Shown here is a 533-nucleotide part of an RNA from Haloarchaeobius iranensis, a member of the family "Archaeal large subunit ribosomal RNA". The match comes from Rfam's covariance-model search (2816 bits). For this family Rfam cites "Crystal structure of the ribosome at 5.5 A resolution" (Yusupov et al., Science, 2001).
RNA sequence: CUACUCUGCCACCUGAUGGAUAGCUCGGCUCAAGAGCCGACGAAGGACGUGCCAAGCUGCGAAAAGCUCCAGCAAGCCGCACGGAGGCAUCGAACUGGAGAUCUCCUAAUGGGAAUCCCCACCGCAAUUGCUUCGCGCAAUGGGGAACACCGGGAAUUGAAACAUCUCAGUACCGGUAGGAAAAGAAAGCAAUACGCGACAUCGUUAGUAACCGCGAGUGAACGCGAUCCAGUCCAAACCGAAGCCCUCACGGGCAAUGUGGUGUUCGGACUGACACUCACCGCUCGAACCCUUCUGUGAACUCUCCUGGAACGGAGGAUGAUACAGGGUGACAAUCCCGUAACAGAAGCCAGUACAGCGUGCGUCAGCUCCAGAGUACCGAGGGUUGGAUAUCCCUCGGGAACAACGCGGGCAUCGACCGCGAAGACUCAGUACUCCUUGAGACCGAUAGCGAACAAGUAGCGUGAGCGAACGCUGAAAAGCACCCCACAACGGGAGGUGCAAUAGGGCUUGAACCCAGGUGGCGAUAGAGC
Numbered sequence: 001c002u003a004c005u006c007u008g009c010c011a012c013c014u015g016a017u018g019g020a021u022a023g024c025u026c027g028g029c030u031c032a033a034g035a036g037c038c039g040a041c042g043a044a045g046g047a048c049g050u051g052c053c054a055a056g057c058u059g060c061g062a063a064a065a066g067c068u069c070c071a072g073c074a075a076g077c078c079g080c081a082c083g084g085a086g087g088c089a090u091c092g093a094a095c096u097g098g099a100g101a102u103c104u105c106c107u108a109a110u111g112g113g114a115a116u117c118c119c120c121a122c123c124g125c126a127a128u129u130g131c132u133u134c135g136c137g138c139a140a141u142g143g144g145g146a147a148c149a150c151c152g153g154g155a156a157u158u159g160a161a162a163c164a165u166c167u168c169a170g171u172a173c174c175g176g177u178a179g180g181a182a183a184a185g186a187a188a189g190c191a192a193u194a195c196g197c198g199a200c201a202u203c204g205u206u207a208g209u210a211a212c213c214g215c216g217a218g219u220g221a222a223c224g225c226g227a228u229c230c231a232g233u234c235c236a237a238a239c240c241g242a243a244g245c246c247c248u249c250a251c252g253g254g255c256a257a258u259g260u261g262g263u264g265u266u267c268g269g270a271c272u273g274a275c276a277c278u279c280a281c282c283g284c285u286c287g288a289a290c291c292c293u294u295c296u297g298u299g300a301a302c303u304c305u306c307c308u309g310g311a312a313c314g315g316a317g318g319a320u321g322a323u324a325c326a327g328g329g330u331g332a333c334a335a336u337c338c339c340g341u342a343a344c345a346g347a348a349g350c351c352a353g354u355a356c357a358g359c360g361u362g363c364g365u366c367a368g369c370u371c372c373a374g375a376g377u378a379c380c381g382a383g384g385g386u387u388g389g390a391u392a393u394c395c396c397u398c399g400g401g402a403a404c405a406a407c408g409c410g411g412g413c414a415u416c417g418a419c420c421g422c423g424a425a426g427a428c429u430c431a432g433u434a435c436u437c438c439u440u441g442a443g444a445c446c447g448a449u450a451g452c453g454a455a456c457a458a459g460u461a462g463c464g465u466g467a468g469c470g471a472a473c474g475c476u477g478a479a480a481a482g483c484a485c486c487c488c489a490c491a492a493c494g495g496g497a498g499g500u501g502c503a504a505u506a507g508g509g510c511u512u513g514a515a516c517c518c519a520g521g522u523g524g525c526g527a528u529a530g531a532g533c
Base pairs, nucleotide, nucleotide: 007526008525009524010523011522012521013520014519015518022511023475024474027446028445029443030442031441032440033439034438035436036435044107045106046105047104048061049060050059067100068099069098070097071096072095076088077087078086111120112119113118127141128140129139130138131137148179149177150176151175152174153173159166160165189197190196201228202227203226204225205224211219212218231429232428233427234426239262240261241260244255245254246253247252272367273366274365275364282360283359284358285357296345297344298343302318304317305316306315307314321325327339328338329337379400380399381398382397383396384395385394407423408422409421410420411419462469463468